The record is a 164-nucleotide RNA from Melissococcus plutonius, which matches "Listeria sRNA rli38" in Rfam. The organism belongs to Melissococcus plutonius, within Bacteria.
[Rfam]
RNA sequence: GUUGAGUGGGAAUAAAAGGCUAACAUAAUAUAGAUGGGGAAUGCCUAUAAAUCAACAUUCUUCAAUUGCUAAGGUACUUAAUUUUCAUUAAAAAUAAGAUGGUUCCCUACCAUUUCCCCUACCAAAAAUUCCUUGUCAGAUUAAUAUUUGACAAGGGAUUUUUA
Numbered sequence: 001g002u003u004g005a006g007u008g009g010g011a012a013u014a015a016a017a018g019g020c021u022a023a024c025a026u027a028a029u030a031u032a033g034a035u036g037g038g039g040a041a042u043g044c045c046u047a048u049a050a051a052u053c054a055a056c057a058u059u060c061u062u063c064a065a066u067u068g069c070u071a072a073g074g075u076a077c078u079u080a081a082u083u084u085u086c087a088u089u090a091a092a093a094a095u096a097a098g099a100u101g102g103u104u105c106c107c108u109a110c111c112a113u114u115u116c117c118c119c120u121a122c123c124a125a126a127a128a129u130u131c132c133u134u135g136u137c138a139g140a141u142u143a144a145u146a147u148u149u150g151a152c153a154a155g156g157g158a159u160u161u162u163u164a
Base pairs, nucleotide, nucleotide: 008107009106010105011104012103049084050083051082052081054079055078058076060074061073062072064070085097087095088094127160128159129158130157131156132155133154134153135152136151137150138149139148140147